The family of this 95-nucleotide RNA from Luteimicrobium xylanilyticum is "ZMP/ZTP riboswitch aptamer (pfl RNA motif)".

RNA sequence: GGCGGCGGCCGCGACUGGCGUUGACAGGUGGGAUCGACCACCGGGGAGCGGCCGGAACCUUCUGAGACCCGACGUCGUCCGCCUGGGCGUCGGAG
Numbered sequence: 001g002g003c004g005g006c007g008g009c010c011g012c013g014a015c016u017g018g019c020g021u022u023g024a025c026a027g028g029u030g031g032g033a034u035c036g037a038c039c040a041c042c043g044g045g046g047a048g049c050g051g052c053c054g055g056a057a058c059c060u061u062c063u064g065a066g067a068c069c070c071g072a073c074g075u076c077g078u079c080c081g082c083c084u085g086g087g088c089g090u091c092g093g094a095g
Base pairs, nucleotide, nucleotide: 006054007053008052009051010050011049012048015045016044017083018082019081020080028041029040030039031038072090073089074088075087076086
Dot-bracket structure: .....(((((((..(([[[[.......((((......))))..))..))))))).................(((((...]]]]..))))).....